This 119-nucleotide sequence from Aquamicrobium lusatiense belongs to the Rfam family "Rhizobiales sRNA Atu_C8". The family's RNA type in Rfam is small RNA. A search with the family's covariance model found it, with a score of 103 bits.

RNA sequence: GGAAAAGGCACUCAUUCUCGUAGUAGGAAGGCGCGUGGGCAAGGUGGUGUAACCACCGGGCGAAAUCCUCCCAUGCGCAACACACAGGCUCCCUCGGGGGCCUUUUUUAUUAUCCAGAA
Numbered sequence: 001g002g003a004a005a006a007g008g009c010a011c012u013c014a015u016u017c018u019c020g021u022a023g024u025a026g027g028a029a030g031g032c033g034c035g036u037g038g039g040c041a042a043g044g045u046g047g048u049g050u051a052a053c054c055a056c057c058g059g060g061c062g063a064a065a066u067c068c069u070c071c072c073a074u075g076c077g078c079a080a081c082a083c084a085c086a087g088g089c090u091c092c093c094u095c096g097g098g099g100g101c102c103u104u105u106u107u108u109a110u111u112a113u114c115c116a117g118a119a
Base pairs, nucleotide, nucleotide: 009023026115027114028113031078032077033076034075035074036073037072038071039070043057044056045055046054047053060067084104086103087102088101089100090099091098092097